[Rfam]
RNA sequence: GCGCUGUCUGAAGAAUCGCUAUCACAGCUCGCACACAGGAAAGCUAUCUGCUUUUCAUAUUCGGCUGUGGGGAAAGUCCCCGGAGGUGCAGAGCGUAUCCUCGACUGCUUAUGGAAAGCGACCGGCUCUAAGCACGACGAUACGGUCGAGGAUGGACGAGAAUGUUCUGGCAGGUGCUCGAGUUUCAUGCUCGCGCUGUUUCCAUCUCAUCCACUCUGCGGCUUUCCUAUACGAGAUACCCUCGGUCAAGGCGCGGGUGUGCGAAGAUACGAGCAUGCUCGUUGCUCGUUGGUAUACUCGGGCGGACAAGCUCUUCGUUGCUCAUAGACACAGUUAUGCGAUUGUUUGAUUCCUCUAGGAAUCAUCAACUCAAUGGGGCUCACUCUUAGUCAGCA
Numbered sequence: 001g002c003g004c005u006g007u008c009u010g011a012a013g014a015a016u017c018g019c020u021a022u023c024a025c026a027g028c029u030c031g032c033a034c035a036c037a038g039g040a041a042a043g044c045u046a047u048c049u050g051c052u053u054u055u056c057a058u059a060u061u062c063g064g065c066u067g068u069g070g071g072g073a074a075a076g077u078c079c080c081c082g083g084a085g086g087u088g089c090a091g092a093g094c095g096u097a098u099c100c101u102c103g104a105c106u107g108c109u110u111a112u113g114g115a116a117a118g119c120g121a122c123c124g125g126c127u128c129u130a131a132g133c134a135c136g137a138c139g140a141u142a143c144g145g146u147c148g149a150g151g152a153u154g155g156a157c158g159a160g161a162a163u164g165u166u167c168u169g170g171c172a173g174g175u176g177c178u179c180g181a182g183u184u185u186c187a188u189g190c191u192c193g194c195g196c197u198g199u200u201u202c203c204a205u206c207u208c209a210u211c212c213a214c215u216c217u218g219c220g221g222c223u224u225u226c227c228u229a230u231a232c233g234a235g236a237u238a239c240c241c242u243c244g245g246u247c248a249a250g251g252c253g254c255g256g257g258u259g260u261g262c263g264a265a266g267a268u269a270c271g272a273g274c275a276u277g278c279u280c281g282u283u284g285c286u287c288g289u290u291g292g293u294a295u296a297c298u299c300g301g302g303c304g305g306a307c308a309a310g311c312u313c314u315u316c317g318u319u320g321c322u323c324a325u326a327g328a329c330a331c332a333g334u335u336a337u338g339c340g341a342u343u344g345u346u347u348g349a350u351u352c353c354u355c356u357a358g359g360a361a362u363c364a365u366c367a368a369c370u371c372a373a374u375g376g377g378g379c380u381c382a383c384u385c386u387u388a389g390u391c392a393g394c395a
Stems, first nucleotide, its partner, number of pairs: 003394004008389004014343006022070007038056007075380002078378004245307003251303002254300007261289004271280003347364005
RNA: RNase MRP
Organism: Psilocybe cyanescens